Group II catalytic intron D1-D4-4: a 129-nucleotide RNA from Dorea sp. AF36-15AT. Group II introns are found in rRNA, tRNA and mRNA of organelles in fungi, plants and protists, and also in mRNA in bacteria. The base pairs follow the family's consensus structure. Its family is annotated with Group II intron splicing in the Gene Ontology. The organism belongs to Dorea, within Bacteria.
RNA sequence: UUGCCGGGGUAAGUCCGGUCACGGUAAUCGCCGGUGAGCCGUGUAGUUAAACUCGGUGCGUUGUAGUAAUACAGGGUGCUAAGCGAGUGGAUAAAGUAACCUUGAAAAAGGUGCGAGUAAAAAACUUAA
Numbered sequence: 001u002u003g004c005c006g007g008g009g010u011a012a013g014u015c016c017g018g019u020c021a022c023g024g025u026a027a028u029c030g031c032c033g034g035u036g037a038g039c040c041g042u043g044u045a046g047u048u049a050a051a052c053u054c055g056g057u058g059c060g061u062u063g064u065a066g067u068a069a070u071a072c073a074g075g076g077u078g079c080u081a082a083g084c085g086a087g088u089g090g091a092u093a094a095a096g097u098a099a100c101c102u103u104g105a106a107a108a109a110g111g112u113g114c115g116a117g118u119a120a121a122a123a124a125c126u127u128a129a
Stems, first nucleotide, its partner, number of pairs: 020043005051088004055080005064071002096114002099112004